[Rfam]
SAM riboswitch aptamer (S box leader): a 103-nucleotide sequence from Algoriphagus aquimarinus. Pairs were carried over by alignment from the consensus structure, which is taken from published work. Rfam links the family to the GO term regulation of gene expression.

RNA sequence: GAUUUAUAAAGAAGAGGCGAGAGAUUAGGCUCUAUGACCCUCUGGCAACCAUCCCGAAACGGAGAACGGUGCCAAAUCCUACCCUAUGCGGGAACUAUAGAUU
Number, nucleotide and partner (000 for none) at each position: 001g103002a102003u101004u100005u099006a098007u097008a096009a000010a000011g000012a000013a043014g042015a041016g040017g039018c000019g000020a000021g032022a031023g030024a000025u000026u081027a080028g079029g078030c023031u022032c021033u000034a000035u000036g000037a000038c000039c017040c016041u015042c014043u013044g073045g072046c071047a070048a000049c069050c068051a000052u064053c000054c062055c000056g000057a000058a000059a000060c000061g000062g054063a000064g052065a000066a000067c000068g050069g049070u047071g046072c045073c044074a000075a000076a000077u000078c029079c028080u027081a026082c092083c091084c090085u000086a000087u000088g000089c000090g084091g083092g082093a000094a000095c000096u008097a007098u006099a005100g004101a003102u002103u001